[Rfam]
The record is an 82-nucleotide sequence from Strigops habroptila, which matches "Small nucleolar RNA SNORD58" in Rfam. From the family's description: snoRNA U58 is found in introns 1, 3 and 6 of the ribosomal protein RPL17 gene in humans. The family has 33 seed sequences and 2,484 matches in Rfam 15.1.

Nucleotides: 082
Base pairs, nucleotide, nucleotide: 001081002080003079004078
Number, partner (000 for none) and nucleotide at each position: 001081u002080g003079g004078u005000g006000g007000u008000g009000a010000u011000g012000a013000c014000u015000u016000a017000c018000c019000u020000u021000a022000g023000g024000a025000c026000a027000c028000c029000u030000u031000u032000g033000g034000a035000a036000u037000a038000c039000g040000u041000a042000u043000g044000a045000a046000a047000a048000a049000a050000u051000a052000c053000u054000a055000a056000g057000u058000u059000g060000g061000u062000u063000u064000u065000u066000u067000u068000u069000u070000u071000u072000u073000c074000c075000u076000g077000a078004g079003c080002c081001a082000u

NCBI's taxonomy places the organism under Eukaryota, Metazoa, Eumetazoa, Teleostomi, Strigops.
Rfam links the family to the GO terms nucleolus and RNA processing.
The family is grouped with related families in Rfam's "SNORD58 clan".